[Rfam]
RNA: Purine riboswitch aptamer
Nucleotides: 102
Base pairs, nucleotide, nucleotide: 019087020086021085022084023083024082025081030048031047032046033045034044035043058078059077060076061075062074063073064072
Number, partner (000 for none) and nucleotide at each position: 001000u002000u003000c004000a005000a006000c007000u008000u009000c010000a011000u012000a013000c014000a015000a016000a017000c018000a019087c020086c021085u022084u023083a024082u025081a026000u027000a028000u029000c030048u031047a032046u033045g034044g035043a036000a037000a038000u039000a040000g041000g042000g043035u044034c045033c046032a047031u048030a049000a050000g051000u052000c053000u054000c055000u056000a057000c058078c059077u060076g061075g062074c063073a064072a065000c066000c067000g068000u069000a070000a071000a072064u073063u074062g075061c076060c077059g078058g079000a080000c081025u082024a083023u084022a085021a086020g087019g088000a089000a090000a091000g092000u093000c094000u095000g096000c097000a098000u099000a100000u101000a102000a